[Rfam]
RNA sequence: AGCUCAUCAAGACCGGCUGAGGGACAGGCCCUUUGAAGCCGGGGCAACCUCUGGACGCCCGCGACCCGGAACGUCUGGAACGGUGCCAAUUCCUGCGGAGCGCGGCCCCUCCGGGCGGCGUUCCGGGAGAUGAGAG
Numbered sequence: 001a002g003c004u005c006a007u008c009a010a011g012a013c014c015g016g017c018u019g020a021g022g023g024a025c026a027g028g029c030c031c032u033u034u035g036a037a038g039c040c041g042g043g044g045c046a047a048c049c050u051c052u053g054g055a056c057g058c059c060c061g062c063g064a065c066c067c068g069g070a071a072c073g074u075c076u077g078g079a080a081c082g083g084u085g086c087c088a089a090u091u092c093c094u095g096c097g098g099a100g101c102g103c104g105g106c107c108c109c110u111c112c113g114g115g116c117g118g119c120g121u122u123c124c125g126g127g128a129g130a131u132g133a134g135a136g
Base pairs, nucleotide, nucleotide: 003134004133005132006131007130008129013042014041015040016039017038021031022030023029025095026094027093028092043087044086045085046084048083049082050079051078052077053076054075055074056073057072091128096125097124098123099122100121101120102119103118